[Rfam]
RNA sequence: GUAUGUGAAAGUGUAAAAUAGAAUGUUACUUUGGAAUGACUAUAAACAUUGAAAGAAGACUGGAAACAUAC
Number, nucleotide and partner (000 for none) at each position: 001g071002u070003a069004u068005g067006u066007g000008a000009a000010a061011g060012u059013g000014u000015a000016a000017a000018a000019u000020a000021g000022a050023a049024u048025g047026u046027u045028a000029c000030u000031u000032u042033g041034g040035a000036a000037u000038g000039a000040c034041u033042a032043u000044a000045a027046a026047c025048a024049u023050u022051g000052a000053a000054a000055g000056a000057a000058g000059a012060c011061u010062g000063g000064a000065a000066a006067c005068a004069u003070a002071c001
GAIT element: a 71-nucleotide sequence. Its family is annotated with negative regulation of translation in the Gene Ontology. By type it is a cis-regulatory element. Rfam describes the family as follows. This family represents a cis-acting element in the 3'-UTR of the ceruloplasmin (Cp) gene called gamma interferon inhibitor of translation (GAIT). The GAIT element is involved in selective translational silencing of the Cp transcript. Ceruloplasmin (Cp) is a multifunctional, copper-containing glycoprotein produced by the liver and secreted into the plasma.